nhaA-I RNA: a 51-nucleotide RNA. It is one of the family's seed sequences. From the family's description: Acidobacteria, Alphaproteobacteria, Betaproteobacteria and Gammaproteobacteria, Verrucomicrobia, cand. division NC10.
[Rfam]
RNA sequence: GGGUUCGGAAUAAUUUCCGAAGGGUUAACUGGAUGGUCGGGCCGCCAUUCG
Numbered sequence: 001g002g003g004u005u006c007g008g009a010a011u012a013a014u015u016u017c018c019g020a021a022g023g024g025u026u027a028a029c030u031g032g033a034u035g036g037u038c039g040g041g042c043c044g045c046c047a048u049u050c051g
Stems, first nucleotide, its partner, number of pairs: 005020006030051004035046003